The record is a 392-nucleotide sequence from Lachnospiraceae bacterium A4, which matches "Bacterial RNase P class A" in Rfam.
Nucleotides: 392
Base pairs, nucleotide, nucleotide: 001388002387003386004385005384006383007382008381009380010379011377012334013333014332015331016330017329018328020055021054023052024051025050026049027048028047029046030045031044060375061374062373064372065371066370067369068368069240070239071238072237076271077270078269079268081236082235083234084233085232086100087099088098089097090096101115102113103112104111105110116231117230121229122228123225124224125223137171138170139167140166141165143163144162145161146160147159148158149157150156179197180196182194183193184192198220199218200217201216202215203214204213205212206211244291245290246289247288253282254281255280256279257278258277262276263275264274265273266272298317299316300315301314302313303312304311305310
Number, partner (000 for none) and nucleotide at each position: 001388c002387a003386a004385c005384u006383g007382u008381a009380g010379u011377a012334a013333a014332u015331g016330a017329u018328c019000g020055c021054g022000g023052c024051u025050u026049a027048u028047c029046g030045g031044g032000c033000g034000c035000g036000c037000a038000g039000g040000c041000g042000u043000u044031u045030u046029c047028g048027a049026u050025a051024a052023g053000g054021u055020g056000a057000g058000g059000a060375a061374a062373g063000u064372c065371c066370g067369g068368g069240c070239u071238u072237c073000g074000c075000a076271g077270g078269g079268c080000a081236g082235g083234a084233u085232g086100c087099c088098g089097g090096a091000u092000a093000a094000c095000g096090u097089c098088c099087g100086g101115u102113g103112g104111a105110g106000g107000u108000g109000a110105c111104u112103c113102c114000a115101a116231g117230g118000c119000u120000a121229g122228u123225g124224c125223a126000a127000c128000a129000g130000a131000a132000a133000u134000a135000u136000a137171c138170c139167g140166c141165c142000a143163g144162a145161a146160c147159g148158g149157g150156a151000g152000u153000u154000u155000g156150u157149c158148u159147c160146g161145u162144u163143c164000c165141g166140g167139u168000a169000a170138g171137g172000g173000u174000g175000g176000a177000a178000a179197g180196g181000c182194a183193g184192u185000g186000u187000a188000a189000g190000a191000g192184a193183c194182u195000a196180c197179c198220g199218u200217g201216u202215g203214g204213c205212u206211g207000g208000u209000a210000a211206c212205a213204g214203c215202c216201a217200u218199a219000g220198c221000c222000a223125u224124g225123u226000a227000a228122a229121c230117c231116c232085c233084a234083u235082c236081c237072g238071a239070a240069g241000c242000a243000a244291g245290a246289c247288c248000a249000a250000a251000c252000a253282a254281g255280a256279a257278a258277c259000a260000a261000g262276a263275g264274a265273c266272u267000u268079g269078c270077c271076c272266g273265g274264u275263c276262u277258g278257u279256u280255u281254c282253u283000a284000g285000g286000u287000a288247g289246g290245u291244c292000g293000c294000u295000u296000g297000a298317g299316g300315c301314u302313g303312a304311u305310g306000g307000c308000a309000a310305c311304g312303u313302c314301a315300g316299c317298c318000c319000u320000a321000g322000a323000u324000a325000g326000a327000u328018g329017a330016u331015c332014a333013u334012u335000c336000g337000u338000g339000c340000u341000g342000c343000u344000g345000c346000g347000a348000a349000g350000g351000u352000g353000g354000c355000a356000g357000c358000a359000c360000u361000g362000a363000c364000a365000g366000a367000a368068c369067c370066c371065g372064g373062c374061u375060u376000a377011u378000c379010g380009c381008u382007g383006c384005g385004g386003u387002u388001g389000c390000c391000a392000a
The organism belongs to Lachnospiraceae, within Bacteria.